[Rfam]
RNA sequence: UCUACAUUUCCCACACUAUCUCAUCUGUCAGAGAGGUGAGAGAGUGUGCGAAAUGAAGAGA
Numbered sequence: 001u002c003u004a005c006a007u008u009u010c011c012c013a014c015a016c017u018a019u020c021u022c023a024u025c026u027g028u029c030a031g032a033g034a035g036g037u038g039a040g041a042g043a044g045u046g047u048g049c050g051a052a053a054u055g056a057a058g059a060g061a
Stems, first nucleotide, its partner, number of pairs: 001059003005055003010050001012048006019041004
RNA: mir-8364 microRNA precursor family
Organism: Pristionchus pacificus